[Rfam]
RNA sequence: GAAGCCCGCCAGACCGCCGCUGGUGCAAUCUGGGAAACCAGGCACUGGAGGAACGUCCGGACUGCAUAGGGCAGCGUAGCAGCUAAUGGCUGUCCACCGUGAGGUGAGGAUUAGAGCAACAGAGACGAGUCAAGUCAGGUCAGCCUAACAAGGGUGGUCUGUGCGAUGCCAGCGCAAGCUGGCAAAGGGCGGCGUAAGCCGACCGGUCCCGGCGCAAGCCGGGAAAGCACAGCACCCAAGUCGGGCAAAGCCCGACUUGGGUGAAACGGGCAAUCUCUACGCGCAGCAAUACCAAAUAGGCCAACGUUGACGGGGCCCCCUGAGUUGGCGGGUAGGUAGCACCGAGCCGGGCGAGCGAUCCCCGGCCCAGAUUAAUGGCGGUCACACGGGAGGUAACUCCCGCGCACAGAAUCCGGCUUAUCGGUGGGCUUCACAC
Numbered sequence: 001g002a003a004g005c006c007c008g009c010c011a012g013a014c015c016g017c018c019g020c021u022g023g024u025g026c027a028a029u030c031u032g033g034g035a036a037a038c039c040a041g042g043c044a045c046u047g048g049a050g051g052a053a054c055g056u057c058c059g060g061a062c063u064g065c066a067u068a069g070g071g072c073a074g075c076g077u078a079g080c081a082g083c084u085a086a087u088g089g090c091u092g093u094c095c096a097c098c099g100u101g102a103g104g105u106g107a108g109g110a111u112u113a114g115a116g117c118a119a120c121a122g123a124g125a126c127g128a129g130u131c132a133a134g135u136c137a138g139g140u141c142a143g144c145c146u147a148a149c150a151a152g153g154g155u156g157g158u159c160u161g162u163g164c165g166a167u168g169c170c171a172g173c174g175c176a177a178g179c180u181g182g183c184a185a186a187g188g189g190c191g192g193c194g195u196a197a198g199c200c201g202a203c204c205g206g207u208c209c210c211g212g213c214g215c216a217a218g219c220c221g222g223g224a225a226a227g228c229a230c231a232g233c234a235c236c237c238a239a240g241u242c243g244g245g246c247a248a249a250g251c252c253c254g255a256c257u258u259g260g261g262u263g264a265a266a267c268g269g270g271c272a273a274u275c276u277c278u279a280c281g282c283g284c285a286g287c288a289a290u291a292c293c294a295a296a297u298a299g300g301c302c303a304a305c306g307u308u309g310a311c312g313g314g315g316c317c318c319c320c321u322g323a324g325u326u327g328g329c330g331g332g333u334a335g336g337u338a339g340c341a342c343c344g345a346g347c348c349g350g351g352c353g354a355g356c357g358a359u360c361c362c363c364g365g366c367c368c369a370g371a372u373u374a375a376u377g378g379c380g381g382u383c384a385c386a387c388g389g390g391a392g393g394u395a396a397c398u399c400c401c402g403c404g405c406a407c408a409g410a411a412u413c414c415g416g417c418u419u420a421u422c423g424g425u426g427g428g429c430u431u432c433a434c435a436c
Stems, first nucleotide, its partner, number of pairs: 001432010011421001012383007020048007053419001055417001057416005062286004069317002074282005079093005094108001095106004109277002114275002116271002164232001236261001237259008290338004300329006311322004346366006353360002
RNA: Bacterial RNase P class A
Organism: Rhodoferax sp. OV413